[Rfam]
Nucleotides: 141
Stems, first nucleotide, its partner, number of pairs: 011126004018031003032121006042055001056106003064081004084100004
Number, partner (000 for none) and nucleotide at each position: 001000c002000a003000g004000g005000c006000g007000g008000c009000a010000c011126c012125g013124c014123u015000g016000a017000g018031u019030c020029g021000a022000a023000a024000u025000c026000u027000u028000u029020c030019g031018a032121g033120c034119c035118g036117g037116g038000g039000a040000c041000c042055c043000a044000c045000g046000u047000g048000u049000u050000c051000c052000a053000u054000a055042g056106g057105g058104g059000u060000g061000a062000a063000u064081c065080c066079g067078c068000g069000u070000g071000a072000a073000c074000c075000a076000g077000c078067g079066c080065g081064g082000u083000a084100g085099g086098g087097c088000g089000a090000c091000c092000u093000u094000c095000c096000c097087g098086c099085c100084c101000g102000a103000a104058c105057c106056c107000g108000u109000c110000a111000g112000c113000u114000a115000a116037c117036c118035c119034g120033g121032u122000a123014a124013g125012c126011g127000g128000c129000c130000a131000u132000g133000g134000a135000a136000g137000a138000a139000g140000g141000a

c-di-AMP riboswitch aptamer (ydaO/yuaA leader): a 141-nucleotide sequence from Dactylosporangium vinaceum.
The match comes from Rfam's covariance-model search (94 bits).
Rfam describes the family as follows. This family represents a conserved RNA structure found upstream of the ydaO and yuaA genes in Bacillus subtilis and related genes in other bacteria. The ydaO/yuaA element is thought to act as a genetic 'off' switch for the ydaO and yuaA genes in its native state. It is believed that the element may be triggered during osmotic shock leading to activation of ydaO, a predicted amino acid transporter gene, and members of the yuaA-yubG operon which code for KtrA and KtrB K+ transporters.